[Rfam]
Description
A member of the RNA family "Eukaryotic large subunit ribosomal RNA" from Tychaedon coryphoeus, 430 nucleotides of a longer RNA. A search with the family's covariance model found it, with a score of 2218 bits.
RNA sequence: GAUGUGUUGUUGCAAUAGUAAUCCUGCUUAGUACGAGAGGAACUGCAGGUUCAGACCCCUGGUGCGUGCGCUUGGCUGAGGAGCCACUGGCACGAGGCUACCAUCUGCGGGCUUAUGAAUGAACGCCUCUAAGUCAGAAUCCUGCCUAGACAUAGCGAUACUGCAGCGCCGCCAGUGCCUCGGUGGGCUCACAAUAGCUGGCCGCCCACCCGUCUGAGGGUGGGCCCGGUGCAGAGCACUGCUCGUGGUCGGGACCGGAGGGGCAGACAGAUGCGGCAUCACCUCUCCCCUGCCACGUACUGCAUGAUCGUGGAGCACCCAGCACUAAAUCAUUUGUAGACGACCUGAUUCUGGGUCAGGGUUUCAUACGUAGCAGAGUGGCUCACUCACUGCGAUCUAUUGAGAAUCAGCCCUCGACACAAGCUUUUGU
Numbered sequence: 001g002a003u004g005u006g007u008u009g010u011u012g013c014a015a016u017a018g019u020a021a022u023c024c025u026g027c028u029u030a031g032u033a034c035g036a037g038a039g040g041a042a043c044u045g046c047a048g049g050u051u052c053a054g055a056c057c058c059c060u061g062g063u064g065c066g067u068g069c070g071c072u073u074g075g076c077u078g079a080g081g082a083g084c085c086a087c088u089g090g091c092a093c094g095a096g097g098c099u100a101c102c103a104u105c106u107g108c109g110g111g112c113u114u115a116u117g118a119a120u121g122a123a124c125g126c127c128u129c130u131a132a133g134u135c136a137g138a139a140u141c142c143u144g145c146c147u148a149g150a151c152a153u154a155g156c157g158a159u160a161c162u163g164c165a166g167c168g169c170c171g172c173c174a175g176u177g178c179c180u181c182g183g184u185g186g187g188c189u190c191a192c193a194a195u196a197g198c199u200g201g202c203c204g205c206c207c208a209c210c211c212g213u214c215u216g217a218g219g220g221u222g223g224g225c226c227c228g229g230u231g232c233a234g235a236g237c238a239c240u241g242c243u244c245g246u247g248g249u250c251g252g253g254a255c256c257g258g259a260g261g262g263g264c265a266g267a268c269a270g271a272u273g274c275g276g277c278a279u280c281a282c283c284u285c286u287c288c289c290c291u292g293c294c295a296c297g298u299a300c301u302g303c304a305u306g307a308u309c310g311u312g313g314a315g316c317a318c319c320c321a322g323c324a325c326u327a328a329a330u331c332a333u334u335u336g337u338a339g340a341c342g343a344c345c346u347g348a349u350u351c352u353g354g355g356u357c358a359g360g361g362u363u364u365c366a367u368a369c370g371u372a373g374c375a376g377a378g379u380g381g382c383u384c385a386c387u388c389a390c391u392g393c394g395a396u397c398u399a400u401u402g403a404g405a406a407u408c409a410g411c412c413c414u415c416g417a418c419a420c421a422a423g424c425u426u427u428u429g430u
Stems, first nucleotide, its partner, number of pairs: 006159007016148003021051001023049005052107004060100003067094002070091002073086005109143003116136003120132001168323002327428003333347001336344001353420001355418003359413003363406002370400004375396001378393004